[Rfam]
RNA sequence: GCCUUGGGAUGAUGACAGAAAGGCCGAAUUGCAGCGCUUGGCAGCACGUUCUCUCUACAGAAGCGCAGUGACAAAGCCCCUCGAAGCGAAAACAAAGCUGACCAAUGC
Numbered sequence: 001g002c003c004u005u006g007g008g009a010u011g012a013u014g015a016c017a018g019a020a021a022g023g024c025c026g027a028a029u030u031g032c033a034g035c036g037c038u039u040g041g042c043a044g045c046a047c048g049u050u051c052u053c054u055c056u057a058c059a060g061a062a063g064c065g066c067a068g069u070g071a072c073a074a075a076g077c078c079c080c081u082c083g084a085a086g087c088g089a090a091a092a093c094a095a096a097g098c099u100g101a102c103c104a105a106u107g108c
Stems, first nucleotide, its partner, number of pairs: 001108002004105004014098001023032002034093001035088003038084004044066002047063001049061002068079001070077001
Description:
Shown here is a 108-nucleotide RNA from Xenopus laevis, a member of the family "Small nucleolar RNA SNORD89". Rfam links the family to the GO terms nucleolus and RNA processing. Rfam classes the family as a C/D-box small nucleolar RNA. Pairs were carried over by alignment from the consensus structure, which was predicted with RNAalifold. It scores 43 bits against the family's covariance model. snoRNA HBII-289 belongs to the family of C/D snoRNAs. It is the human orthologue of the mouse MBII-289 and has no identified RNA target. Lineage of the source: Eukaryota > Eumetazoa > Chordata > Gnathostomata > Xenopus.